[Rfam]
The record is a 130-nucleotide RNA from Clostridium sp. USBA 49, which matches "c-di-AMP riboswitch aptamer (ydaO/yuaA leader)" in Rfam. This family represents a conserved RNA structure found upstream of the ydaO and yuaA genes in Bacillus subtilis and related genes in other bacteria.

RNA sequence: ACAUGAAAUAAGCCGAAUCUCCAAACGGAGUACGGGGGAUGCCAUUCUAUUGGGGUGAAUCUCUUUAAUGAGUAGGGUACCUCUUACCCAAACCCGUCAACUAACCUCGGAGGCAAAGGAGGAGAUAUAU
Dot-bracket structure: ...........(((....((........))..(((((.....((......))(((.....(((......)))..((((.......))))...))).........)))))..)))................

Rfam links the family to the GO terms regulation of gene expression and cyclic-di-AMP binding.